This 115-nucleotide RNA from Trifolium medium belongs to the Rfam family "MIR2593 microRNA precursor family".
Its family is annotated with RISC complex and miRNA-mediated post-transcriptional gene silencing in the Gene Ontology.
Rfam 15.1 lists 1,262 matches to the family in 6 species.
It scores 100 bits against the family's covariance model.
Lineage of the source: Eukaryota > rosids > Fabales > Hologalegina > Trifolium.
RNA sequence: AUAUAAGCAAAAAUUAACUUUUUAGAUUCAUUGAAAAAGUGAUGUAUCUAGUCUAUAUUACACACCAGAUACAUCACGUUUUCAAUGAAUCUAAAACGUUAACUUUUGCUUAUAU
Numbered sequence: 001a002u003a004u005a006a007g008c009a010a011a012a013a014u015u016a017a018c019u020u021u022u023u024a025g026a027u028u029c030a031u032u033g034a035a036a037a038a039g040u041g042a043u044g045u046a047u048c049u050a051g052u053c054u055a056u057a058u059u060a061c062a063c064a065c066c067a068g069a070u071a072c073a074u075c076a077c078g079u080u081u082u083c084a085a086u087g088a089a090u091c092u093a094a095a096a097c098g099u100u101a102a103c104u105u106u107u108g109c110u111u112a113u114a115u
Stems, first nucleotide, its partner, number of pairs: 002114006009107004015101004020096006027089011039077006049067001051065002